[Rfam]
RNA sequence: GACUUAUCAAGAGUGGUGGAGGGACUGGCCCUGUGAAGCCCAGCAACCAAUAUUUUAAUCAAGAGGUAUAUGGUGCUAAUUCCUGCAGUGAAAGCUGACAGAUAAGGU
Numbered sequence: 001g002a003c004u005u006a007u008c009a010a011g012a013g014u015g016g017u018g019g020a021g022g023g024a025c026u027g028g029c030c031c032u033g034u035g036a037a038g039c040c041c042a043g044c045a046a047c048c049a050a051u052a053u054u055u056u057a058a059u060c061a062a063g064a065g066g067u068a069u070a071u072g073g074u075g076c077u078a079a080u081u082c083c084u085g086c087a088g089u090g091a092a093a094g095c096u097g098a099c100a101g102a103u104a105a106g107g108u
Stems, first nucleotide, its partner, number of pairs: 001108001003106006013041001015040003021031003025085001027083002042077004047073002050069006081100001086097004
A member of the RNA family "SAM riboswitch aptamer (S box leader)" from Clostridium sp. SM-530-WT-3G, 108 nucleotides long. The organism belongs to Clostridium, within Bacteria.